[Rfam]
RNA sequence: UUCCAAAACUCUGGAGAGACCGGCGGCCCGUCGCUUUCAGUCGGGCCCCACCGGCGCCGAAGGGGCAAGAAGCGGGGCCUCCAGGAGGUGAAUCCUCCCCCGGCCGCCUGUCGAGGCACGCUUCCAAACUCUCAGGCAAAAGGACAGAGGGGCGCUC
Numbered sequence: 001u002u003c004c005a006a007a008a009c010u011c012u013g014g015a016g017a018g019a020c021c022g023g024c025g026g027c028c029c030g031u032c033g034c035u036u037u038c039a040g041u042c043g044g045g046c047c048c049c050a051c052c053g054g055c056g057c058c059g060a061a062g063g064g065g066c067a068a069g070a071a072g073c074g075g076g077g078c079c080u081c082c083a084g085g086a087g088g089u090g091a092a093u094c095c096u097c098c099c100c101c102g103g104c105c106g107c108c109u110g111u112c113g114a115g116g117c118a119c120g121c122u123u124c125c126a127a128a129c130u131c132u133c134a135g136g137c138a139a140a141a142g143g144a145c146a147g148a149g150g151g152g153c154g155c156u157c
Stems, first nucleotide, its partner, number of pairs: 009149005020054004056137003059133002063131003069124006